[Rfam]
RNA sequence: CAGAAAUGGGAGUUCCUUACAGUCCAAAGCGCCCCGCGACUUAACUUCGCAAUGUUUUGGACUGAAGGGAGCUCCUACUUCUU
Numbered sequence: 001c002a003g004a005a006a007u008g009g010g011a012g013u014u015c016c017u018u019a020c021a022g023u024c025c026a027a028a029g030c031g032c033c034c035c036g037c038g039a040c041u042u043a044a045c046u047u048c049g050c051a052a053u054g055u056u057u058u059g060g061a062c063u064g065a066a067g068g069g070a071g072c073u074c075c076u077a078c079u080u081c082u083u
Stems, first nucleotide, its partner, number of pairs: 007077012021063002024060005